[Rfam]
RNA sequence: UUCAACCACCCGACCUGUGCCCGACCGUCCUCUGUUCGCACCGCGAAUUCAGAGUUGAUGGUCGAGGCAGCUCGAUUUCUUAUGGGAUCAUCCUUCUCACAAUGGUGUCAGUCCAAAUCACAGGUCGCAGAGUAACCAGUCCAGCAGUGCCUGAGCUCGCCGUAAGGCUGAGCUCGGUGCUCUGGAUCUGGAGACCGUAUAUUCCAAAGCCACAGCUGAGAUCUUUGAUUUAGUGAGGUGGGGGAAAACCAUACGAUGUCUACAUGA
Number, nucleotide and partner (000 for none) at each position: 001u000002u000003c000004a000005a000006c000007c000008a000009c000010c000011c127012g126013a125014c124015c123016u122017g121018u120019g068020c067021c066022c064023g063024a062025c000026c060027g059028u058029c057030c054031u053032c052033u051034g050035u000036u047037c045038g044039c043040a000041c000042c000043g039044c038045g037046a000047a036048u000049u000050c034051a033052g032053a031054g030055u000056u000057g029058a028059u027060g026061g000062u024063c023064g022065a000066g021067g020068c019069a000070g000071c000072u000073c000074g000075a000076u000077u000078u117079c000080u115081u000082a000083u110084g109085g108086g000087a106088u105089c104090a000091u000092c000093c000094u000095u000096c000097u000098c000099a000100c000101a000102a000103u000104g089105g088106u087107g000108u085109c084110a083111g000112u000113c000114c000115a080116a000117a078118u000119c000120a018121c017122a016123g015124g014125u013126c012127g011128c000129a000130g000131a000132g000133u000134a000135a000136c000137c000138a000139g187140u186141c185142c184143a183144g182145c000146a000147g000148u179149g178150c177151c176152u000153g175154a174155g173156c172157u171158c170159g168160c167161c000162g000163u000164a000165a000166g000167g160168c159169u000170g158171a157172g156173c155174u154175c153176g151177g150178u149179g148180c000181u000182c144183u143184g142185g141186a140187u139188c000189u000190g000191g000192a000193g260194a259195c258196c255197g254198u253199a252200u251201a000202u000203u000204c000205c000206a000207a000208a000209g000210c243211c242212a000213c240214a000215g000216c237217u236218g000219a000220g230221a229222u228223c227224u000225u000226u000227g223228a222229u221230u220231u000232a000233g000234u000235g000236a217237g216238g000239u000240g213241g000242g211243g210244g000245a000246a000247a000248a000249c000250c000251a200252u199253a198254c197255g196256a000257u000258g195259u194260c193261u000262a000263c000264a000265u000266g000267a000
RNA: A. fumigatus sRNA Afu_309